[Rfam]
RNA sequence: CCAGUCGGCCGGACGGCCGCUUCGCUCCUUCAUCGGAGCGGAGAGGAAAGUCCGGGCUCCACGGAAACACGGCGCCGGAUAACGUCCGGCGGGGGCGACCCCAGGGAAAGUGCCACAGAGAGCAAACCGCCUCCGGCUAUGGCCGGCGGUAAGGGUGAAAGGGUGCGGUAAGAGCGCACCGCGCGACCGGUAACGGGAGCGGCACGGCAAACCCCGCCGGGAGCAAGACCGAAUAGGGGCGACGCGCAGGCGGCGAAAGCCGUCGGCAGGCCUGCUUCCGGGCCGUCGCCCGGGUUGGUUGCUUGAGGCGUCCGGCGACGGACGUCCCAGAGGAAUGGUCGUCACGCGCGCGCCGGUCCGCCGACGCGCGCCAUACAGAACCCGGCUUACAGGCCGGCUGGCCCC
Numbered sequence: 001c002c003a004g005u006c007g008g009c010c011g012g013a014c015g016g017c018c019g020c021u022u023c024g025c026u027c028c029u030u031c032a033u034c035g036g037a038g039c040g041g042a043g044a045g046g047a048a049a050g051u052c053c054g055g056g057c058u059c060c061a062c063g064g065a066a067a068c069a070c071g072g073c074g075c076c077g078g079a080u081a082a083c084g085u086c087c088g089g090c091g092g093g094g095g096c097g098a099c100c101c102c103a104g105g106g107a108a109a110g111u112g113c114c115a116c117a118g119a120g121a122g123c124a125a126a127c128c129g130c131c132u133c134c135g136g137c138u139a140u141g142g143c144c145g146g147c148g149g150u151a152a153g154g155g156u157g158a159a160a161g162g163g164u165g166c167g168g169u170a171a172g173a174g175c176g177c178a179c180c181g182c183g184c185g186a187c188c189g190g191u192a193a194c195g196g197g198a199g200c201g202g203c204a205c206g207g208c209a210a211a212c213c214c215c216g217c218c219g220g221g222a223g224c225a226a227g228a229c230c231g232a233a234u235a236g237g238g239g240c241g242a243c244g245c246g247c248a249g250g251c252g253g254c255g256a257a258a259g260c261c262g263u264c265g266g267c268a269g270g271c272c273u274g275c276u277u278c279c280g281g282g283c284c285g286u287c288g289c290c291c292g293g294g295u296u297g298g299u300u301g302c303u304u305g306a307g308g309c310g311u312c313c314g315g316c317g318a319c320g321g322a323c324g325u326c327c328c329a330g331a332g333g334a335a336u337g338g339u340c341g342u343c344a345c346g347c348g349c350g351c352g353c354c355g356g357u358c359c360g361c362c363g364a365c366g367c368g369c370g371c372c373a374u375a376c377a378g379a380a381c382c383c384g385g386c387u388u389a390c391a392g393g394c395c396g397g398c399u400g401g402c403c404c405c
Stems, first nucleotide, its partner, number of pairs: 001401010011390001012343007020043009048388003052385005057223004066277002070219005075089005090104001091102004105214002110212002112208003127154002129150003133146005162180006181203001182201003187196003227300004237291006269284005307326008

A member of the RNA family "Bacterial RNase P class A" from Chenggangzhangella methanolivorans, 405 nucleotides long. Taxonomically the source falls in Chenggangzhangella (Bacteria, Pseudomonadati, Pseudomonadota, Hyphomicrobiales). The family's RNA type in Rfam is ribozyme.